[Rfam]
RNA sequence: UGGAAGAACGAUACACGAGAUUAGAAUAGUUUAAUUUCUCGUCAUAAAUUCUUCCUAUAGAAAAAUUGCCUUCUGAUGACUGUGAUUUGUGAAGAUUUAAUUUAUAGACAGAUACGGGGCAUACAAAA
Numbered sequence: 001u002g003g004a005a006g007a008a009c010g011a012u013a014c015a016c017g018a019g020a021u022u023a024g025a026a027u028a029g030u031u032u033a034a035u036u037u038c039u040c041g042u043c044a045u046a047a048a049u050u051c052u053u054c055c056u057a058u059a060g061a062a063a064a065a066u067u068g069c070c071u072u073c074u075g076a077u078g079a080c081u082g083u084g085a086u087u088u089g090u091g092a093a094g095a096u097u098u099a100a101u102u103u104a105u106a107g108a109c110a111g112a113u114a115c116g117g118g119g120c121a122u123a124c125a126a127a128a
Stems, first nucleotide, its partner, number of pairs: 002055006015042004020035004067121006080107003085102001087100002
RNA: Small Cajal body specific RNA 8
Organism: Apis cerana